[Rfam]
RNA sequence: AAUCAAGGCGACCUAUUCCACACACAUACCGGCGCGACUACCGGGUGCCUUCGGGUUGGUAGUUGGGGUAUGUGGCGGUUCUAA
Numbered sequence: 001a002a003u004c005a006a007g008g009c010g011a012c013c014u015a016u017u018c019c020a021c022a023c024a025c026a027u028a029c030c031g032g033c034g035c036g037a038c039u040a041c042c043g044g045g046u047g048c049c050u051u052c053g054g055g056u057u058g059g060u061a062g063u064u065g066g067g068g069u070a071u072g073u074g075g076c077g078g079u080u081c082u083a084a
Base pairs, nucleotide, nucleotide: 023074024073025072026071027070028069029068030067035065036064037063038062039061040060041059042058043057047056048055049054